[Rfam]
RNA sequence: UGCCGAUUGUCCAUAAAUCGGGGUCACUGAAGAGGCACUACUUCCUUGCCGGGCGUGCGGAACGGGGAAACUCCCAAUCCAAGCGAAGGCAGCGACAAGUCGGACAGCCCUGUCCCCUUGCGCGACUGCCACCCGCAAACCAG
Numbered sequence: 001u002g003c004c005g006a007u008u009g010u011c012c013a014u015a016a017a018u019c020g021g022g023g024u025c026a027c028u029g030a031a032g033a034g035g036c037a038c039u040a041c042u043u044c045c046u047u048g049c050c051g052g053g054c055g056u057g058c059g060g061a062a063c064g065g066g067g068a069a070a071c072u073c074c075c076a077a078u079c080c081a082a083g084c085g086a087a088g089g090c091a092g093c094g095a096c097a098a099g100u101c102g103g104a105c106a107g108c109c110c111u112g113u114c115c116c117c118u119u120g121c122g123c124g125a126c127u128g129c130c131a132c133c134c135g136c137a138a139a140c141c142a143g
Stems, first nucleotide, its partner, number of pairs: 001023001003021006034050004057136003084094002
The family of this 143-nucleotide sequence from Bauldia litoralis is "speF leader". On this family, see Corbino et al., Genome Biol 2005: "Evidence for a second class of S-adenosylmethionine riboswitches and other regulatory RNA motifs in alpha-proteobacteria". It scores 66 bits against the family's covariance model. Pairs were carried over by alignment from the consensus structure, which was predicted with RNAalifold. Rfam's curators write: This family is a putative regulatory RNA structure that is found upstream of the speF gene encoding ornithine decarboxylase in Agrobacterium tumefaciens and other alpha-proteobacteria.